This 91-nucleotide sequence from Equus caballus belongs to the Rfam family "Small nucleolar SNORD12/SNORD106". By type it is a C/D-box small nucleolar RNA. A reference for the family is Huttenhofer et al. (2001), "RNomics: an experimental approach that identifies 201 candidates for novel, small, non-messenger RNAs in mouse", EMBO J. Clan: SNORD12 clan.
[Rfam]
RNA sequence: GCUGGUGUAAAGGAUGACUUCACUUUUUUCCCCAUCAGAUCGACAGUGUUGAUGUCGUUGAACACUUGCCAGUUAGUUCUGAUGCACCAGC
Dot-bracket structure: (((((((((.........................................................................)))))))))